Small nucleolar RNA SNORD25: an 89-nucleotide sequence from Musa balbisiana. The base pairs follow the family's consensus structure, which was predicted with PFOLD. For this family Rfam cites "Identification of 10 novel snoRNA gene clusters from Arabidopsis thaliana" (Qu et al., Nucleic Acids Res, 2001). The family is grouped with related families in Rfam's "SNORD25 clan".
[Rfam]
RNA sequence: GACAACAGUGAUGAUCCUACAGACCUGUAAUGAUUCUGCGGAUAUGAUCGCAGUUACAAUGCUGAAGAGCAUCUAAGGACUGAGUUUUC
Numbered sequence: 001g002a003c004a005a006c007a008g009u010g011a012u013g014a015u016c017c018u019a020c021a022g023a024c025c026u027g028u029a030a031u032g033a034u035u036c037u038g039c040g041g042a043u044a045u046g047a048u049c050g051c052a053g054u055u056a057c058a059a060u061g062c063u064g065a066a067g068a069g070c071a072u073c074u075a076a077g078g079a080c081u082g083a084g085u086u087u088u089c
Stems, first nucleotide, its partner, number of pairs: 002088001004086003

By type it is a C/D-box small nucleolar RNA.